[Rfam]
RNA sequence: UGAUGUCAGGGUCAAAGGUCAUAAAACACGAUGUGCUUGCACAGGAGUGUUUAUAUGACUUAUUGACCCGCCCAAUAUGAGCAUAAAAGGGAAGCGUAAGCUUCACGAUAUGCGAAUAUUGGGUAGGAUUGUGAGAGUGCGAAGCACGGAACAAUCCGUAUGACAUCA
Numbered sequence: 001u002g003a004u005g006u007c008a009g010g011g012u013c014a015a016a017g018g019u020c021a022u023a024a025a026a027c028a029c030g031a032u033g034u035g036c037u038u039g040c041a042c043a044g045g046a047g048u049g050u051u052u053a054u055a056u057g058a059c060u061u062a063u064u065g066a067c068c069c070g071c072c073c074a075a076u077a078u079g080a081g082c083a084u085a086a087a088a089g090g091g092a093a094g095c096g097u098a099a100g101c102u103u104c105a106c107g108a109u110a111u112g113c114g115a116a117u118a119u120u121g122g123g124u125a126g127g128a129u130u131g132u133g134a135g136a137g138u139g140c141g142a143a144g145c146a147c148g149g150a151a152c153a154a155u156c157c158g159u160a161u162g163a164c165a166u167c168a
Stems, first nucleotide, its partner, number of pairs: 001168007010068004016061008024052006032043004071123008081113004089106001091104005126157007137147004
Rfam assigns this 168-nucleotide sequence from Firmicutes bacterium CAG:194 to the family "Clostridiales-1 RNA". Rfam classes the family as a small RNA. The family's consensus secondary structure is taken from published work.